[Rfam]
RNA sequence: GGGCACGGCGAAGCAUUCCCGUCGGAGCGAAACACACAGACCGGGGCCUCGCGGCUGCCGGCCUCCCCGGCGCUCUGGGCGAAAGUCCCCGGACGCGAUGGCAGAAAGUGCGGGCGAGGGAUCGCCGCCGCCUCCGCACGCGCGGUCGCCGAGGCUGAGAUGGGCUUUUCCGGAGCCGAGGCCGCGCGCGGAGCCGCUUGUCAUUGAUUGUUGGCAGCGCCAGGAAAAGUUAUGGGAUGGAUGCGUGAGCGGUAAGUUUUUGGAUACGUUCGCUUCUGCGCUGAGCAAGCAGAAAGGAUAAGGAGGAUUGAAAUGCCUUUGUGCUGCUCCAGUCCUAAUUCACGGGCCCCACUUUUAACUCCCGGGGUCAUGUUGAGGAAAAGCACGUCAGUCUGAAUCCAGUGGUGAUGCCAGCUCGGUGAUGCCAGUUUAUGACAUGGUAGGCAAGGUCUUUGGAAUGACGGUACUAACUUGGAGAUUCUACACCCUGUUAUUCUUGUCGUCCUUCGUAGGAUGCGACCGUUACGACGUAGCCGCGAACUUGUAUAUCAUAGUACGAGGUAGACGCAUAAACUCAAUGGGGCUUACUCUUGCCGUGUC
Number, nucleotide and partner (000 for none) at each position: 001g000002g600003g599004c598005a597006c596007g595008g594009c593010g592011a591012a000013g000014c239015a238016u237017u236018c235019c234020c000021g000022u078023c077024g076025g075026a074027g073028c072029g000030a000031a000032a000033c000034a000035c000036a000037c000038a000039g000040a000041c000042c000043g065044g064045g063046g062047c061048c060049u000050c000051g000052c000053g000054g000055c000056u000057g000058c000059c000060g048061g047062c046063c045064u044065c043066c000067c000068c000069g000070g000071c000072g028073c027074u026075c025076u024077g023078g022079g000080c000081g000082a000083a586084a585085g584086u000087c583088c582089c581090c580091g000092g000093a000094c000095g000096c000097g000098a000099u000100g000101g111102c110103a109104g000105a000106a000107a000108g000109u103110g102111c101112g000113g000114g125115c124116g123117a122118g000119g000120g000121a000122u117123c116124g115125c114126c000127g000128c196129c000130g000131c000132c193133u192134c191135c190136g189137c188138a000139c000140g000141c186142g185143c184144g183145g000146u000147c000148g000149c000150c000151g000152a000153g177154g176155c175156u000157g000158a000159g000160a000161u000162g171163g170164g169165c000166u000167u000168u000169u164170c163171c162172g000173g000174a000175g155176c154177c153178g000179a000180g000181g000182c000183c144184g143185c142186g141187c000188g137189c136190g135191g134192a133193g132194c000195c000196g128197c000198u000199u000200g000201u000202c000203a000204u000205u000206g000207a000208u000209u000210g000211u000212u000213g000214g000215c000216a000217g000218c000219g000220c000221c000222a000223g000224g000225a000226a000227a000228a000229g000230u000231u000232a000233u000234g019235g018236g017237a016238u015239g014240g000241a570242u569243g568244c567245g566246u565247g000248a000249g000250c000251g000252g000253u000254a000255a000256g000257u000258u000259u000260u000261u000262g000263g000264a000265u000266a000267c000268g000269u000270u000271c000272g000273c000274u000275u000276c000277u000278g000279c000280g000281c000282u000283g000284a000285g000286c000287a000288a000289g000290c000291a000292g000293a000294a000295a000296g000297g000298a000299u000300a000301a000302g000303g000304a000305g000306g000307a000308u000309u000310g000311a000312a000313a000314u000315g000316c000317c000318u000319u000320u000321g000322u000323g000324c000325u000326g000327c000328u000329c000330c000331a000332g000333u000334c000335c000336u000337a000338a000339u000340u000341c000342a000343c000344g000345g000346g000347c000348c000349c000350c000351a000352c000353u000354u000355u000356u000357a000358a000359c000360u000361c000362c000363c000364g000365g000366g000367g000368u000369c000370a000371u000372g000373u000374u000375g000376a000377g000378g000379a000380a000381a000382a000383g000384c000385a000386c000387g000388u000389c000390a000391g000392u000393c000394u000395g000396a000397a000398u000399c000400c000401a000402g000403u000404g000405g000406u000407g000408a000409u000410g000411c000412c000413a000414g000415c000416u000417c000418g000419g000420u000421g000422a000423u000424g000425c000426c000427a000428g000429u000430u000431u000432a000433u000434g000435a000436c000437a000438u000439g000440g000441u000442a000443g000444g000445c000446a000447a000448g000449g000450u000451c000452u000453u000454u000455g000456g000457a000458a000459u000460g000461a000462c000463g000464g000465u000466a000467c000468u000469a000470a000471c000472u000473u000474g000475g000476a000477g000478a000479u000480u000481c000482u000483a000484c000485a000486c000487c000488c000489u000490g000491u000492u000493a000494u000495u000496c000497u000498u000499g000500u000501c000502g000503u000504c000505c000506u000507u000508c000509g000510u000511a000512g000513g000514a000515u000516g000517c000518g000519a000520c000521c000522g000523u000524u000525a000526c000527g000528a000529c000530g000531u000532a000533g000534c000535c000536g000537c000538g000539a000540a000541c000542u000543u000544g000545u000546a000547u000548a000549u000550c000551a000552u000553a000554g000555u000556a000557c000558g000559a000560g000561g000562u000563a000564g000565a246566c245567g244568c243569a242570u241571a000572a000573a000574c000575u000576c000577a000578a000579u000580g090581g089582g088583g087584c085585u084586u083587a000588c000589u000590c000591u011592u010593g009594c008595c007596g006597u005598g004599u003600c002
The record is a 600-nucleotide RNA from Chondrus crispus, which matches "RNase MRP" in Rfam. About the family: RNase MRP is an enzymatically active ribonucleoprotein with two distinct roles in eukaryotes. NCBI's taxonomy places the organism under Eukaryota, Rhodophyta, Florideophyceae, Gigartinales, Chondrus. Pairs were carried over by alignment from the consensus structure, which is taken from published work. It is annotated as a ribozyme.